Notes: The record is a 63-nucleotide sequence, which matches "DUF3800-VIII RNA" in Rfam. Rfam's curators put it in the seed alignment. Bacteroidetes, Cyanobacteria, Firmicutes, Planctomycetes (1 example), Proteobacteria, Tenericutes (1 example). The base pairs follow the family's consensus structure, which is taken from published work.

[Rfam]
RNA sequence: AAUCCCCUGCUUCGCCAAAGCCCUGCGUGCCACGCUGGGUACUUGUAGGCAAAGUGGGGGAUU
Numbered sequence: 001a002a003u004c005c006c007c008u009g010c011u012u013c014g015c016c017a018a019a020g021c022c023c024u025g026c027g028u029g030c031c032a033c034g035c036u037g038g039g040u041a042c043u044u045g046u047a048g049g050c051a052a053a054g055u056g057g058g059g060g061a062u063u
Stems, first nucleotide, its partner, number of pairs: 001063012014050003020040004025035004